[Rfam]
RNA sequence: UCCCGAAAGGGCAAACCCGCCGCGAGGCGGGGGCGCAAAGCGACCGGUCUCGAAAGAGAUAGCGGCGCUGCCGUGG
Numbered sequence: 001u002c003c004c005g006a007a008a009g010g011g012c013a014a015a016c017c018c019g020c021c022g023c024g025a026g027g028c029g030g031g032g033g034c035g036c037a038a039a040g041c042g043a044c045c046g047g048u049c050u051c052g053a054a055a056g057a058g059a060u061a062g063c064g065g066c067g068c069u070g071c072c073g074u075g076g
Stems, first nucleotide, its partner, number of pairs: 001076001003073001011036002016031006034062001039069004044065003047060003

Rfam assigns this 76-nucleotide RNA sequence from Thiobacillus denitrificans to the family "c-di-GMP-I-GGC riboswitch aptamer". The literature on the family includes a 2017 paper in Proc Natl Acad Sci U S A by Weinberg et al., "Bioinformatic analysis of riboswitch structures uncovers variant classes with altered ligand specificity".